[Rfam]
This 51-nucleotide RNA from Ochotona princeps belongs to the Rfam family "MAT2A 3'UTR stem loop C". A reference for the family is Parker et al. (2011), "New families of human regulatory RNA structures identified by comparative analysis of vertebrate genomes", Genome Res. Pairs were carried over by alignment from the consensus structure, which is taken from published work. Rfam's curators put it in the seed alignment. Lineage of the source: Eukaryota > Bilateria > Craniata > Euteleostomi > Ochotona. The family has 18 seed sequences and 275 matches in Rfam 15.1. Rfam classes the family as a cis-regulatory element.

RNA sequence: GCUGCUAAAGGGCUGGUGUAGUUACAGAGAAACCAGUUUUCUUCAGAGAGC
Numbered sequence: 001g002c003u004g005c006u007a008a009a010g011g012g013c014u015g016g017u018g019u020a021g022u023u024a025c026a027g028a029g030a031a032a033c034c035a036g037u038u039u040u041c042u043u044c045a046g047a048g049a050g051c
Stems, first nucleotide, its partner, number of pairs: 001051003005046002008043001011038007018025002